[Rfam]
RNA sequence: GUGGAUUUAUGUUUGCAGGAGAGAUGGCACUAAUUGUUCUACAUCUAUUAGCAAUUGUUGUCAUCUCUCUUGUGACCAAAAGCUCUA
Numbered sequence: 001g002u003g004g005a006u007u008u009a010u011g012u013u014u015g016c017a018g019g020a021g022a023g024a025u026g027g028c029a030c031u032a033a034u035u036g037u038u039c040u041a042c043a044u045c046u047a048u049u050a051g052c053a054a055u056u057g058u059u060g061u062c063a064u065c066u067c068u069c070u071u072g073u074g075a076c077c078a079a080a081a082g083c084u085c086u087a
Base pairs, nucleotide, nucleotide: 003085004084006082007081008080010078011077013075014074015073016072017071018070019069020068021067022066023065024064025063026062027061028060029059031057032056033055034054035053036052037051